[Rfam]
RNA: Xanthine riboswitch aptamer (NMT1 RNA)
RNA sequence: UGACAGAGUAGAAGCGUUCAGCGGUUGCGACCGCAGGAAAUUGCUCUGGUG
Numbered sequence: 001u002g003a004c005a006g007a008g009u010a011g012a013a014g015c016g017u018u019c020a021g022c023g024g025u026u027g028c029g030a031c032c033g034c035a036g037g038a039a040a041u042u043g044c045u046c047u048g049g050u051g
Stems, first nucleotide, its partner, number of pairs: 005047006015036001018038002021034005